RNA sequence: GAGCUCGAAUGACAACGCGAGAGAGCACACUUGUAGACUGUCAUGCUCCCUUCCCAUGAAUGCCGACAGGCGUGCUCUCUCUCGUUGUCAAGCAACG
Numbered sequence: 001g002a003g004c005u006c007g008a009a010u011g012a013c014a015a016c017g018c019g020a021g022a023g024a025g026c027a028c029a030c031u032u033g034u035a036g037a038c039u040g041u042c043a044u045g046c047u048c049c050c051u052u053c054c055c056a057u058g059a060a061u062g063c064c065g066a067c068a069g070g071c072g073u074g075c076u077c078u079c080u081c082u083c084g085u086u087g088u089c090a091a092g093c094a095a096c097g
Stems, first nucleotide, its partner, number of pairs: 010090005016084002020080002023077001025075004030070005
Description
Shown here is a 97-nucleotide RNA from Macleaya cordata, a member of the family "MIR535 microRNA precursor family". Its family is annotated with RISC complex and miRNA-mediated post-transcriptional gene silencing in the Gene Ontology. For this family Rfam cites "Conservation and divergence of microRNAs and their functions in Euphorbiaceous plants" (Zeng et al., Nucleic Acids Res, 2010). A search with the family's covariance model found it, with a score of 67 bits.